Rfam assigns this 215-nucleotide RNA from Aestuariivirga litoralis to the family "permuted transfer-messenger RNA".
It is annotated as a non-coding RNA gene.
Its family is annotated with RNA catabolic process in the Gene Ontology.
The literature on the family includes a 1996 paper in RNA by Williams and Bartel, "Phylogenetic analysis of tmRNA secondary structure".
The match comes from Rfam's covariance-model search (152 bits).
Lineage of the source: Bacteria > Pseudomonadati > Pseudomonadota > Hyphomicrobiales > Aestuariivirga.
Pairs were carried over by alignment from the consensus structure, which is taken from published work.
Nucleotides: 215
Base pairs, nucleotide, nucleotide: 001138002137003136004135005134014128015127016126017125026117027116028115030114031113032112036052037051038050039049040048053099054098055097056096057095058094059093139154140153141152
Number, partner (000 for none) and nucleotide at each position: 001138g002137g003136c004135g005134a006000u007000a008000a009000a010000c011000g012000g013000u014128g015127a016126u017125c018000g019000u020000a021000a022000u023000a024000a025000a026117c027116c028115u029000u030114u031113c032112g033000g034000a035000c036052c037051c038050g039049g040048g041000g042000g043000c044000a045000g046000u047000a048040c049039c050038c051037g052036g053099c054098g055097c056096c057095u058094c059093c060000a061000c062000c063000a064000c065000a066000g067000a068000c069000c070000g071000c072000u073000g074000c075000g076000g077000g078000a079000c080000a081000g082000c083000g084000g085000c086000c087000u088000c089000u090000g091000c092000u093059g094058g095057g096056g097055g098054c099053g100000a101000a102000c103000c104000a105000g106000g107000a108000u109000c110000g111000a112032c113031g114030a115028g116027g117026g118000u119000g120000u121000a122000a123000a124000g125017g126016g127015u128014u129000g130000c131000u132000u133000u134005u135004u136003g137002c138001c139154c140153g141152u142000g143000a144000u145000g146000g147000u148000a149000c150000c151000g152141a153140c154139g155000u156000u157000a158000u159000c160000g161000g162000g163000c164000u165000a166000a167000a168000c169000a170000u171000a172000u173000a174000g175000u176000u177000g178000c179000c180000a181000a182000c183000g184000a185000c186000a187000a188000c189000u190000a191000u192000g193000c194000u195000c196000c197000g198000g199000u200000c201000g202000c203000g204000g205000u206000g207000g208000c209000u210000g211000c212000g213000u214000a215000a